[Rfam]
RNA sequence: ACAAAUUUGGCCGUUUCACGGUCAGGGCUGACUGUUGCCUGAAGAAGGGUAA
Numbered sequence: 001a002c003a004a005a006u007u008u009g010g011c012c013g014u015u016u017c018a019c020g021g022u023c024a025g026g027g028c029u030g031a032c033u034g035u036u037g038c039c040u041g042a043a044g045a046a047g048g049g050u051a052a
Base pairs, nucleotide, nucleotide: 009023010022011021012020013019